[Rfam]
RNA sequence: CUGUGCGGGUCCAAGAUUCCGGAUGCGCAGGCGGCCUACGAAAGCGCCAACACCCUGCUGCCGACCGUGCUGGCCGGCGUGAACUUCACGCUG
Number, nucleotide and partner (000 for none) at each position: 001c000002u000003g000004u000005g000006c000007g000008g000009g000010u000011c000012c000013a000014a000015g000016a000017u000018u000019c000020c000021g000022g000023a000024u000025g032026c000027g000028c000029a000030g000031g000032c025033g062034g061035c060036c000037u000038a000039c000040g000041a000042a000043a000044g000045c000046g000047c000048c000049a000050a000051c000052a000053c000054c000055c000056u000057g000058c000059u000060g035061c034062c033063g000064a000065c000066c000067g000068u000069g000070c000071u000072g000073g000074c000075c000076g000077g091078c000079g089080u088081g000082a000083a000084c000085u000086u000087c000088a080089c079090g000091c077092u000093g000
The family of this 93-nucleotide RNA from Rhodovibrio salinarum is "Pyrrolysine insertion sequence mttB". The source organism's lineage runs through Bacteria, Pseudomonadota, Alphaproteobacteria, Rhodovibrionaceae and Rhodovibrio. Pairs were carried over by alignment from the consensus structure, which was predicted with CMfinder. Rfam links the family to the GO term pyrrolysine incorporation. The family has 23 seed sequences and 416 matches in Rfam 15.1. On this family, see Theil Have et al., BMC Bioinformatics 2013: "Effects of using coding potential, sequence conservation and mRNA structure conservation for predicting pyrroly-sine containing genes". Rfam classes the family as a cis-regulatory element.